The family of this 109-nucleotide RNA is "Actinomyces-1 RNA".
The family's consensus secondary structure is taken from published work.
The sequence is in the family's curated seed alignment.
It is annotated as a small RNA.

RNA sequence: GGUGCCGCCGGGCGGUGCGGGUCUUGAGGGUUGGGGAACCCGGUGACGGGCCUGUGCCGAGGUCUGUCGGGGUCCAAGGGAGCCCUGGCGGGUCGUUUCGGCGAAGGGG
Number, nucleotide and partner (000 for none) at each position: 001g000002g000003u000004g000005c000006c103007g102008c101009c100010g099011g098012g097013c059014g058015g057016u056017g000018c054019g053020g052021g051022u050023c049024u048025u000026g000027a000028g041029g040030g039031u038032u037033g000034g000035g000036g000037a032038a031039c030040c029041c028042g000043g000044u000045g000046a000047c000048g024049g023050g022051c021052c020053u019054g018055u000056g016057c015058c014059g013060a000061g094062g093063u092064c091065u090066g089067u000068c000069g086070g085071g084072g083073u082074c000075c000076a000077a000078g000079g000080g000081a000082g073083c072084c071085c070086u069087g000088g000089c066090g065091g064092g063093u062094c061095g000096u000097u012098u011099c010100g009101g008102c007103g006104a000105a000106g000107g000108g000109g000